[Rfam]
RNA sequence: CGCAUAAAAUGCGGAUAUGGUGCUGACUUUGUGUAAGUCCGACGUAUCCUGUAUUCACGGAUACUGCCAGAUAUGGCUUUGGGAUUAC
Numbered sequence: 001c002g003c004a005u006a007a008a009a010u011g012c013g014g015a016u017a018u019g020g021u022g023c024u025g026a027c028u029u030u031g032u033g034u035a036a037g038u039c040c041g042a043c044g045u046a047u048c049c050u051g052u053a054u055u056c057a058c059g060g061a062u063a064c065u066g067c068c069a070g071a072u073a074u075g076g077c078u079u080u081g082g083g084a085u086u087a088c
Stems, first nucleotide, its partner, number of pairs: 002023004033088004039083002044064005066077004